[Rfam]
RNA sequence: UCGGGAGAGGUUCAUAGCGACCCUCUUUAAAAAACUAUGGAUGA
Numbered sequence: 001u002c003g004g005g006a007g008a009g010g011u012u013c014a015u016a017g018c019g020a021c022c023c024u025c026u027u028u029a030a031a032a033a034a035c036u037a038u039g040g041a042u043g044a
Stems, first nucleotide, its partner, number of pairs: 006026005015037002
This 44-nucleotide sequence from Filibacter tadaridae belongs to the Rfam family "PreQ1 (pre queuosine) riboswitch aptamer". Gene Ontology term of the family: queuosine biosynthetic process. The organism belongs to Filibacter, within Bacteria. From the family's description: This family is a bacterial riboswitch that binds to the metabolite preQ1, an intermediate in the biosynthesis of the modified nucleoside queuosine from GTP. One example of this riboswitch is located in the leader of the Bacillus subtilis ykvJKLM (queCDEF) operon which encodes four genes necessary for queuosine production. PreQ1 binding to the riboswitch aptamer is thought to induce premature transcription termination within the leader to down-regulate expression of these genes. The literature on the family includes a 2004 paper in J Biol Chem by Reader et al., "Identification of four genes necessary for biosynthesis of the modified nucleoside queuosine". The base pairs follow the family's consensus structure.